[Rfam]
RNA sequence: ACGGAGACAUGGCAUAAAGCCAGAAGGAGACUCUUGAGUAGAUUCUCAACUUGAACUGAUUUGCAUCUCAUUUU
Number, nucleotide and partner (000 for none) at each position: 001a000002c000003g000004g069005a068006g067007a066008c000009a000010u022011g021012g020013c019014a000015u000016a000017a000018a000019g013020c012021c011022a010023g064024a000025a062026g061027g000028a000029g000030a000031c000032u000033c000034u000035u000036g000037a000038g000039u000040a000041g000042a000043u000044u000045c000046u000047c000048a000049a000050c000051u000052u000053g000054a000055a000056c000057u000058g000059a000060u000061u026062u025063g000064c023065a000066u007067c006068u005069c004070a000071u000072u000073u000074u000

ctgf/hcs24 CAESAR: a 74-nucleotide sequence from Ptilonorhynchus violaceus. Rfam 15.1 lists 518 matches to the family in 508 species. The source organism's lineage runs through Eukaryota, Eumetazoa, Bilateria, Sauropsida and Ptilonorhynchus. For this family Rfam cites "Involvement of cis-acting repressive element(s) in the 3'-untranslated region of human connective tissue growth factor gene" (Kubota et al., FEBS Lett, 1999). The 3' UTR of human connective tissue growth factor/hypertrophic chondrocyte specific 24 (ctgf/hcs24) mRNA has been shown to repress ctgf gene expression. Reference identified a minimal RNA element, predicted to form a stable secondary structure, which acts as a post-transcriptional cis-acting element of structure-anchored repression (CAESAR), probably through direct interactions with as yet unknown nuclear factors. It is annotated as a cis-regulatory element. The family's consensus secondary structure is taken from published work.